Shown here is a 79-nucleotide RNA from Miscanthus lutarioriparius, a member of the family "Small nucleolar RNA R12". The literature on the family includes a 2003 paper in Nucleic Acids Res by Chen et al., "The high diversity of snoRNAs in plants: identification and comparative study of 120 snoRNA genes from Oryza sativa". NCBI's taxonomy places the organism under Eukaryota, Streptophyta, Tracheophyta, Poaceae, Miscanthus. Rfam's curators write: snoR12 is a C/D box small nucleolar RNA, which acts as a methylation guide for 25S ribosomal RNA in plants. snoR12 has been alternatively named snoZ44 in Arabidopsis and snoZ131 in rice. Pairs were carried over by alignment from the consensus structure, which was predicted with PFOLD.
RNA sequence: AUUGGGAUGGAGAAGAAAGCCAGACAGAUUCCCACUGAUUUUCCAAAACGAUGUUAUUAGCCAGCUGCUUCCGAUCAAU
Numbered sequence: 001a002u003u004g005g006g007a008u009g010g011a012g013a014a015g016a017a018a019g020c021c022a023g024a025c026a027g028a029u030u031c032c033c034a035c036u037g038a039u040u041u042u043c044c045a046a047a048a049c050g051a052u053g054u055u056a057u058u059a060g061c062c063a064g065c066u067g068c069u070u071c072c073g074a075u076c077a078a079u
Stems, first nucleotide, its partner, number of pairs: 001079005